RNA sequence: GAGAGCCUCGAGCCAAUAAAGACUAAGAAGAUUGACUCCAGAACAA
Dot-bracket structure: ......((.(((.((((.............)))).))).)).....
Source information:
The record is a 46-nucleotide RNA from Camellia sinensis, which matches "Plastid-rpl16 group II-D1 intron" in Rfam. The base pairs follow the family's consensus structure, which was predicted with LocARNA. It scores 61 bits against the family's covariance model. Gene Ontology term of the family: Group II intron splicing. Rfam's curators write: Plastid-rpl16 is a non-coding RNA (ncRNA) recognised in plastids. The source organism's lineage runs through Eukaryota, Euphyllophyta, Mesangiospermae, Ericales and Camellia sinensis. Rfam 15.1 lists 1,446 matches to the family in 693 species.